[Rfam]
RNA sequence: UGUGCAAGUGAUUAUAAAACAGACAGGGACAUCAGAAUUUCAAUGAUGAUUUGUCUUUGGGAAUCUCUAUGAUGCACA
Numbered sequence: 001u002g003u004g005c006a007a008g009u010g011a012u013u014a015u016a017a018a019a020c021a022g023a024c025a026g027g028g029a030c031a032u033c034a035g036a037a038u039u040u041c042a043a044u045g046a047u048g049a050u051u052u053g054u055c056u057u058u059g060g061g062a063a064u065c066u067c068u069a070u071g072a073u074g075c076a077c078a
Base pairs, nucleotide, nucleotide: 002077003076004075005074006073
The record is a 78-nucleotide sequence from Camellia sinensis, which matches "Small nucleolar RNA R44/J54/Z268 family" in Rfam. The base pairs follow the family's consensus structure, which was predicted with PFOLD. Rfam classes the family as a C/D-box small nucleolar RNA.